[Rfam]
Background:
The family of this 101-nucleotide RNA from Jatropha curcas is "Plastid-rps12 3UTR RNA". Rfam's curators put it in the seed alignment.

RNA sequence: UUUCAUUGGUGCAAAUUCAAUCACCUCAAUUUUCAAUUUAAAACAAAAAGAAUUCCCCAUUGGUAGCAAAUGAUUAUCCGUUAAGCGGGGGAAAUCCUAUU
Numbered sequence: 001u002u003u004c005a006u007u008g009g010u011g012c013a014a015a016u017u018c019a020a021u022c023a024c025c026u027c028a029a030u031u032u033u034c035a036a037u038u039u040a041a042a043a044c045a046a047a048a049a050g051a052a053u054u055c056c057c058c059a060u061u062g063g064u065a066g067c068a069a070a071u072g073a074u075u076a077u078c079c080g081u082u083a084a085g086c087g088g089g090g091g092a093a094a095u096c097c098u099a100u101u
Stems, first nucleotide, its partner, number of pairs: 006020004055090004059081002062078005

The base pairs follow the family's consensus structure, which was predicted with LocARNA. Lineage of the source: Eukaryota > Streptophyta > Euphyllophyta > rosids > Jatropha. About the family: Plastid rpl20 is a non-coding RNA (ncRNA) recognised in plastids.